About this RNA:
A member of the RNA family "UnaL2 LINE 3' element" from Megalops atlanticus, 54 nucleotides long. Rfam classes the family as a cis-regulatory element. The family's consensus secondary structure is taken from published work.
[Rfam]
RNA sequence: ACCCAUAAUUGAUGUAGGUCGCUCUGGAUAAGAGCAUCUGCUAAAUUCCAGUAA
Numbered sequence: 001a002c003c004c005a006u007a008a009u010u011g012a013u014g015u016a017g018g019u020c021g022c023u024c025u026g027g028a029u030a031a032g033a034g035c036a037u038c039u040g041c042u043a044a045a046u047u048c049c050a051g052u053a054a
Stems, first nucleotide, its partner, number of pairs: 013043001014041003021035005